Source information: This 87-nucleotide sequence from Yersinia pestis belongs to the Rfam family "RpsF leader". By type it is a cis-regulatory leader. Rfam's curators put it in the seed alignment. Gene Ontology terms of the family: negative regulation of translation and protein binding.

RNA sequence: GCCGCACACAAACACGUUCCUUGCCUCCAUGGGCCGCGGUUGACCCUAUCAGGAGGCUGAAUAAUCCGUAAGGAGCAAUAAUCGAUG
Numbered sequence: 001g002c003c004g005c006a007c008a009c010a011a012a013c014a015c016g017u018u019c020c021u022u023g024c025c026u027c028c029a030u031g032g033g034c035c036g037c038g039g040u041u042g043a044c045c046c047u048a049u050c051a052g053g054a055g056g057c058u059g060a061a062u063a064a065u066c067c068g069u070a071a072g073g074a075g076c077a078a079u080a081a082u083c084g085a086u087g
Stems, first nucleotide, its partner, number of pairs: 016076007023057006031046003